[Rfam]
Shown here is a 100-nucleotide RNA sequence from Podarcis lilfordi, a member of the family "Vault RNA".
It is annotated as a non-coding RNA gene.
Rfam 15.1 lists 2,873 matches to the family in 431 species.
Pairs were carried over by alignment from the consensus structure, which is taken from published work.
Lineage of the source: Eukaryota > Metazoa > Sauria > Episquamata > Podarcis.
From the family's description: This family of RNAs are found as part of the enigmatic vault ribonucleoprotein complex. The complex consists of a major vault protein (MVP), two minor vault proteins (VPARP and TEP1), and several small untranslated RNA molecules. It has been suggested that the vault complex is involved in drug resistance.
RNA sequence: GAGCCAGCUCAGUCCAGCGGUUCCAUCGAGCAGAGCAUUAGCUUAGAUCCCCUAAUCGCUUCCAGCGGUUUGAGACCCGCGGGCGCUGCCUGGUUUUUUU
Numbered sequence: 001g002a003g004c005c006a007g008c009u010c011a012g013u014c015c016a017g018c019g020g021u022u023c024c025a026u027c028g029a030g031c032a033g034a035g036c037a038u039u040a041g042c043u044u045a046g047a048u049c050c051c052c053u054a055a056u057c058g059c060u061u062c063c064a065g066c067g068g069u070u071u072g073a074g075a076c077c078c079g080c081g082g083g084c085g086c087u088g089c090c091u092g093g094u095u096u097u098u099u100u
Base pairs, nucleotide, nucleotide: 002095003094004093005092006091007090012084013083014082015081017080018079019078020077026073027072028071029070